Annotation:
The family of this 124-nucleotide RNA from Gossypium australe is "MIR7504 microRNA precursor family". Gene Ontology terms of the family: RISC complex and miRNA-mediated post-transcriptional gene silencing. NCBI's taxonomy places the organism under Eukaryota, Embryophyta, Pentapetalae, Malvales, Gossypium. The base pairs follow the family's consensus structure, which was predicted with RNAalifold.
[Rfam]
RNA sequence: AAUAGUUUUAUGCCACAUCAACAUUUUCAUCCUGAAUUUCAACAUUUUCAUCCUGAAAAAAAAUCAAAUCCAAAUUAAAAUCUUGAAAUCUAGGAUAAGAAUACUGAUGUGGCAUAAAACUAUU
Numbered sequence: 001a002a003u004a005g006u007u008u009u010a011u012g013c014c015a016c017a018u019c020a021a022c023a024u025u026u027u028c029a030u031c032c033u034g035a036a037u038u039u040c041a042a043c044a045u046u047u048u049c050a051u052c053c054u055g056a057a058a059a060a061a062a063a064u065c066a067a068a069u070c071c072a073a074a075u076u077a078a079a080a081u082c083u084u085g086a087a088a089u090c091u092a093g094g095a096u097a098a099g100a101a102u103a104c105u106g107a108u109g110u111g112g113c114a115u116a117a118a119a120c121u122a123u124u
Stems, first nucleotide, its partner, number of pairs: 001124020023102005029096006036089004041084002045080004